Shown here is a 100-nucleotide RNA from Leucobacter weissii, a member of the family "Glycine riboswitch aptamer". The match comes from Rfam's covariance-model search (54 bits).
RNA sequence: GCAACUCUGGAAAGCAGCGCGUCGUCGCGCUCACCGAAGGUGCAAGGCCGUCUCCAUGCGAGCGGCUGAAUCUCUCAGGUCACGGUACAGAGCGGGGAGG
Numbered sequence: 001g002c003a004a005c006u007c008u009g010g011a012a013a014g015c016a017g018c019g020c021g022u023c024g025u026c027g028c029g030c031u032c033a034c035c036g037a038a039g040g041u042g043c044a045a046g047g048c049c050g051u052c053u054c055c056a057u058g059c060g061a062g063c064g065g066c067u068g069a070a071u072c073u074c075u076c077a078g079g080u081c082a083c084g085g086u087a088c089a090g091a092g093c094g095g096g097g098a099g100g
Base pairs, nucleotide, nucleotide: 002095005092006091007090008089009088016031017030018029019028033080034079035078036076037075040074042072046067047066048065049064050063051062
Its family is annotated with glycine biosynthetic process in the Gene Ontology.